[Rfam]
RNA sequence: GAUGACGGCGCGGGGUGCCGGUGCACGCCACCGGCUGAGAACACACCCGUCGAACCUGAUCUAGCUCGUACUAGCGAAGGGACGCCACAUGGGCUCCUU
Numbered sequence: 001g002a003u004g005a006c007g008g009c010g011c012g013g014g015g016u017g018c019c020g021g022u023g024c025a026c027g028c029c030a031c032c033g034g035c036u037g038a039g040a041a042c043a044c045a046c047c048c049g050u051c052g053a054a055c056c057u058g059a060u061c062u063a064g065c066u067c068g069u070a071c072u073a074g075c076g077a078a079g080g081g082a083c084g085c086c087a088c089a090u091g092g093g094c095u096c097c098u099u
Stems, first nucleotide, its partner, number of pairs: 007086004011049004016043001017035007055080003061074004
Dot-bracket structure: ......((((((((.((((((((.....))))))).......)..)))).....(((...((((......))))...)))..)))).............